[Rfam]
RNA sequence: UGAUUGUUUAAAGGAGAGUUGGCGAACUGCCACGCCGAAGGAGCAAGAAGGUUAUUAUCCUAUAAUCUUUGAAUCUCUCAGGCCCACGUACUUUAACAAGACG
Numbered sequence: 001u002g003a004u005u006g007u008u009u010a011a012a013g014g015a016g017a018g019u020u021g022g023c024g025a026a027c028u029g030c031c032a033c034g035c036c037g038a039a040g041g042a043g044c045a046a047g048a049a050g051g052u053u054a055u056u057a058u059c060c061u062a063u064a065a066u067c068u069u070u071g072a073a074u075c076u077c078u079c080a081g082g083c084c085c086a087c088g089u090a091c092u093u094u095a096a097c098a099a100g101a102c103g
Stems, first nucleotide, its partner, number of pairs: 008096006020032004034083003037079002041077003047070009
RNA: Glycine riboswitch aptamer